Background:
This 82-nucleotide sequence from Oenanthe oenanthe belongs to the Rfam family "Small nucleolar RNA SNORD72". Lineage of the source: Eukaryota > Theropoda > Neognathae > Australaves > Oenanthe. snoRNA HBII-240 belongs to the CD family of snoRNAs. It scores 52 bits against the family's covariance model. The base pairs follow the family's consensus structure.
Nucleotides: 082
Base pairs, nucleotide, nucleotide: 002081003080004079005078007076
Number, partner (000 for none) and nucleotide at each position: 001000a002081g003080u004079u005078u006000g007076u008000g009000a010000a011000g012000u013000a014000u015000g016000u017000u018000u019000c020000u021000u022000a023000a024000g025000a026000a027000a028000a029000a030000a031000u032000a033000u034000c035000c036000g037000a038000a039000c040000a041000u042000a043000u044000g045000a046000a047000c048000u049000c050000c051000a052000u053000a054000g055000u056000g057000a058000u059000u060000u061000c062000a063000g064000u065000g066000c067000a068000u069000u070000a071000a072000u073000g074000a075000g076007a077000g078005a079004a080003g081002c082000u

Gene Ontology terms of the family: nucleolus and RNA processing.